Shown here is a 194-nucleotide sequence from Pseudescherichia vulneris, a member of the family "Yersinia sRNA 251". By type it is an antisense RNA. On this family, see Nuss et al., PLoS Genet 2015: "Transcriptomic profiling of Yersinia pseudotuberculosis reveals reprogramming of the Crp regulon by temperature and uncovers Crp as a master regulator of small RNAs".

RNA sequence: AGUAUGCUUGCAGCGUCCGCUGGCAGAGGGCCGAGCGCACGCAGUCAUCUUUGGUAAAGCGGACGAUGCCAAUCAUCUCAUCUUCCUCAAAACGUGCCAGCGCAUCGCUCAGGCCGGACUGGACGCCCGACGGCAAAUCGCACUGGGUGAUAUCACCGUUAACGAUCACGGUCACGUUCUCCCCGAGGCGUGUC
Numbered sequence: 001a002g003u004a005u006g007c008u009u010g011c012a013g014c015g016u017c018c019g020c021u022g023g024c025a026g027a028g029g030g031c032c033g034a035g036c037g038c039a040c041g042c043a044g045u046c047a048u049c050u051u052u053g054g055u056a057a058a059g060c061g062g063a064c065g066a067u068g069c070c071a072a073u074c075a076u077c078u079c080a081u082c083u084u085c086c087u088c089a090a091a092a093c094g095u096g097c098c099a100g101c102g103c104a105u106c107g108c109u110c111a112g113g114c115c116g117g118a119c120u121g122g123a124c125g126c127c128c129g130a131c132g133g134c135a136a137a138u139c140g141c142a143c144u145g146g147g148u149g150a151u152a153u154c155a156c157c158g159u160u161a162a163c164g165a166u167c168a169c170g171g172u173c174a175c176g177u178u179c180u181c182c183c184c185g186a187g188g189c190g191u192g193u194c
Stems, first nucleotide, its partner, number of pairs: 003053002006050001014041003018037002061078003065074003083112002088107001093102003113193002117189001119188002125134003137166004144158003171183001174180001
Dot-bracket structure: ..((.(.......(((.((................)).)))........).)).......(((.(((....))).)))....((...(....(((....)))....)...))((..(.((....(((....)))..((((...(((.........)))....))))....(..(.....)..)...)))..)).